[Rfam]
RNA sequence: CGACCUCAGAUCAGACGAGAUCACCCGCUAAAUUUAAGCAUAUCAAUAAGCGGUGGAAAAGAAACGAAAACGAAUUCUCCGAGUAGCGGCGAGCGAAACGAGAGCAGUCCAUACACCGAAGUCGGCGAGCAGUUGUGUUCGUCAACAGUGUGGUGUUAAAGGUGUCGUUGCAUGUGCUGAAAUCGGUUCGUAGGCUCCCUUGAUUGGGGCUUCAGAGCGGGUGCAGGACCCAUAACGAACGAUGUUUUGUGCAUGGUGUCGCGGCUCCUAAUCGAGUCGGGUUGCUUGAGACUGCAGCCCAAAGCGGGUGGUAAAUCUCACCCAAGACUAAAUAUUCGUACGAGACCGAUAGCGAACAAGUACCGCGAGGGAAAGUUGAAAAGAACUCUGAAGAGAGAGUUCAACAGGACGUGAAACCGUUGACAGGCAAA
Dot-bracket structure: ........................(((((.....((....))......)))))...........((....))...((((......((.....)).....))))..((((....(((((.(((.((((((........)))))).))..).))))).....((.((((.((...((((.((.....(((((...(.((((......)))))..(...)..((.......)).....))))).....)).)))).......)))))).))..........(((((((........))))))).....(((((........)))))..)))).................................((....))...............((((....))))..................................
Numbered sequence: 001c002g003a004c005c006u007c008a009g010a011u012c013a014g015a016c017g018a019g020a021u022c023a024c025c026c027g028c029u030a031a032a033u034u035u036a037a038g039c040a041u042a043u044c045a046a047u048a049a050g051c052g053g054u055g056g057a058a059a060a061g062a063a064a065c066g067a068a069a070a071c072g073a074a075u076u077c078u079c080c081g082a083g084u085a086g087c088g089g090c091g092a093g094c095g096a097a098a099c100g101a102g103a104g105c106a107g108u109c110c111a112u113a114c115a116c117c118g119a120a121g122u123c124g125g126c127g128a129g130c131a132g133u134u135g136u137g138u139u140c141g142u143c144a145a146c147a148g149u150g151u152g153g154u155g156u157u158a159a160a161g162g163u164g165u166c167g168u169u170g171c172a173u174g175u176g177c178u179g180a181a182a183u184c185g186g187u188u189c190g191u192a193g194g195c196u197c198c199c200u201u202g203a204u205u206g207g208g209g210c211u212u213c214a215g216a217g218c219g220g221g222u223g224c225a226g227g228a229c230c231c232a233u234a235a236c237g238a239a240c241g242a243u244g245u246u247u248u249g250u251g252c253a254u255g256g257u258g259u260c261g262c263g264g265c266u267c268c269u270a271a272u273c274g275a276g277u278c279g280g281g282u283u284g285c286u287u288g289a290g291a292c293u294g295c296a297g298c299c300c301a302a303a304g305c306g307g308g309u310g311g312u313a314a315a316u317c318u319c320a321c322c323c324a325a326g327a328c329u330a331a332a333u334a335u336u337c338g339u340a341c342g343a344g345a346c347c348g349a350u351a352g353c354g355a356a357c358a359a360g361u362a363c364c365g366c367g368a369g370g371g372a373a374a375g376u377u378g379a380a381a382a383g384a385a386c387u388c389u390g391a392a393g394a395g396a397g398a399g400u401u402c403a404a405c406a407g408g409a410c411g412u413g414a415a416a417c418c419g420u421u422g423a424c425a426g427g428c429a430a431a
Stems, first nucleotide, its partner, number of pairs: 025053005035042002065072002076103004086094002106329004114155005120149001121146002124143006161268002164265004169261002174252004179247002186240005194210001196209004213217001220230002279300007306323005363370002386397004

This 431-nucleotide part of an RNA from Trichinella sp. T9 belongs to the Rfam family "Eukaryotic large subunit ribosomal RNA". The match comes from Rfam's covariance-model search (2742 bits).